RNA sequence: GCCCAUUCCCCGGGGGACCGCUGCUGCGGUUGAGAGUCGGCGAGCACGCCGAGACCCGCCGAACCUGAUCCGGCUGACACCGGCGUAGGGAGGGAGGCGCGCACGCUC
Numbered sequence: 001g002c003c004c005a006u007u008c009c010c011c012g013g014g015g016g017a018c019c020g021c022u023g024c025u026g027c028g029g030u031u032g033a034g035a036g037u038c039g040g041c042g043a044g045c046a047c048g049c050c051g052a053g054a055c056c057c058g059c060c061g062a063a064c065c066u067g068a069u070c071c072g073g074c075u076g077a078c079a080c081c082g083g084c085g086u087a088g089g090g091a092g093g094g095a096g097g098c099g100c101g102c103a104c105g106c107u108c
Stems, first nucleotide, its partner, number of pairs: 006096005011058004017030005038051004064089004070083004
RNA: TPP riboswitch aptamer (THI element)
Organism: Allosphingosinicella ginsenosidimutans